[Rfam]
RNA sequence: UUUAGGUGCAACCAUGGUUUUUCGCGUCCAACUUUGACAGUCCGUUUUAUUUGAAAUUUUUUUAAAAAAAUUUAGGAAUAUAAGUCACGAGUAAAAUACUAUUCAUAUUUUAUCAUGUCAUAACAAUAAAAAUAUUAAUUAUAAAAAAUCUUUAAAUAAGACGGACGAUUAAAGUUUAACGUGGAAACUUAUAGUU
Numbered sequence: 001u002u003u004a005g006g007u008g009c010a011a012c013c014a015u016g017g018u019u020u021u022u023c024g025c026g027u028c029c030a031a032c033u034u035u036g037a038c039a040g041u042c043c044g045u046u047u048u049a050u051u052u053g054a055a056a057u058u059u060u061u062u063u064a065a066a067a068a069a070a071u072u073u074a075g076g077a078a079u080a081u082a083a084g085u086c087a088c089g090a091g092u093a094a095a096a097u098a099c100u101a102u103u104c105a106u107a108u109u110u111u112a113u114c115a116u117g118u119c120a121u122a123a124c125a126a127u128a129a130a131a132a133u134a135u136u137a138a139u140u141a142u143a144a145a146a147a148a149u150c151u152u153u154a155a156a157u158a159a160g161a162c163g164g165a166c167g168a169u170u171a172a173a174g175u176u177u178a179a180c181g182u183g184g185a186a187a188c189u190u191a192u193a194g195u196u
Base pairs, nucleotide, nucleotide: 027179030176031175032174033173034172035171036170037169040166041165042164043163044162045161046160047159048158049157050156
RNA: MIR812 microRNA precursor family